[Rfam]
RNA sequence: UAAUGAGAAUGAAAAAACACAAUUCGGUUGGUAGUCCGGAUGCAUGAUUUAAAAUGUCAGUAACCUUCCCCUCCUCGGGAUGUCCAUCAUUCUUCAGUAAAUU
Numbered sequence: 001u002a003a004u005g006a007g008a009a010u011g012a013a014a015a016a017a018c019a020c021a022a023u024u025c026g027g028u029u030g031g032u033a034g035u036c037c038g039g040a041u042g043c044a045u046g047a048u049u050u051a052a053a054a055u056g057u058c059a060g061u062a063a064c065c066u067u068c069c070c071c072u073c074c075u076c077g078g079g080a081u082g083u084c085c086a087u088c089a090u091u092c093u094u095c096a097g098u099a100a101a102u103u
Stems, first nucleotide, its partner, number of pairs: 005094007022041006042057004067080004
Annotation: A member of the RNA family "azaaromatic riboswitch aptamer (yjdF RNA)" from Bacillus velezensis, 103 nucleotides long. Taxonomically the source falls in Bacillus velezensis (Bacteria, Bacillati, Bacillaceae, Bacillus).